[Rfam]
RNA sequence: CUCCUGAGUCCCCGACGUAGGCCCCUGUGAGCCCACAGUAUUUUCCUUAUAUGAUCAGGCCCUUUGUGGGCGGCGCUGCUUGCCCGGGCCUGAGAGGAUUAGAAGAACGUGCUAGGCGAAGUGCGGCCUAGGGGACUUGGAG
Numbered sequence: 001c002u003c004c005u006g007a008g009u010c011c012c013c014g015a016c017g018u019a020g021g022c023c024c025c026u027g028u029g030a031g032c033c034c035a036c037a038g039u040a041u042u043u044u045c046c047u048u049a050u051a052u053g054a055u056c057a058g059g060c061c062c063u064u065u066g067u068g069g070g071c072g073g074c075g076c077u078g079c080u081u082g083c084c085c086g087g088g089c090c091u092g093a094g095a096g097g098a099u100u101a102g103a104a105g106a107a108c109g110u111g112c113u114a115g116g117c118g119a120a121g122u123g124c125g126g127c128c129u130a131g132g133g134g135a136c137u138u139g140g141a142g
Stems, first nucleotide, its partner, number of pairs: 001142003005139009020128004024123001055093008066083007
The record is a 142-nucleotide RNA sequence from Dipodomys ordii, which matches "small Cajal body-specific RNA 17" in Rfam. The family has 6 seed sequences and 262 matches in Rfam 15.1. scaRNAs are a specific class of small nuclear RNAs which localise to the Cajal bodies and guide the modification of RNA polymerase II transcribed spliceosomal RNAs U1, U2, U4, U5 and U12. The complete human U12-22/U4-8 scaRNA is composed of two tandem C/D box domains (termed U12-22 and U4-8). The base pairs follow the family's consensus structure, which is taken from published work. The match comes from Rfam's covariance-model search (120 bits). A reference for the family is Darzacq et al. (2002), "Cajal body-specific small nuclear RNAs: a novel class of 2'-O-methylation and pseudouridylation guide RNAs", EMBO J.